[Rfam]
RNA: Small nucleolar RNA SNORA44
RNA sequence: AUGUAAAAACCUAGAGGAGCACUAUGGGGCGUCCAGCUGCGUGGGAACAACCUGGAGAGACUGUGACAGCCCAGGUCAGCACGACACCUGCAGCUGCCACUUGCCUUUUCCUAUAAAG
Numbered sequence: 001a002u003g004u005a006a007a008a009a010c011c012u013a014g015a016g017g018a019g020c021a022c023u024a025u026g027g028g029g030c031g032u033c034c035a036g037c038u039g040c041g042u043g044g045g046a047a048c049a050a051c052c053u054g055g056a057g058a059g060a061c062u063g064u065g066a067c068a069g070c071c072c073a074g075g076u077c078a079g080c081a082c083g084a085c086a087c088c089u090g091c092a093g094c095u096g097c098c099a100c101u102u103g104c105c106u107u108u109u110c111c112u113a114u115a116a117a118g
Base pairs, nucleotide, nucleotide: 010027011026015023016022054111055110056109057108058106059105069097070096072090073089074088075087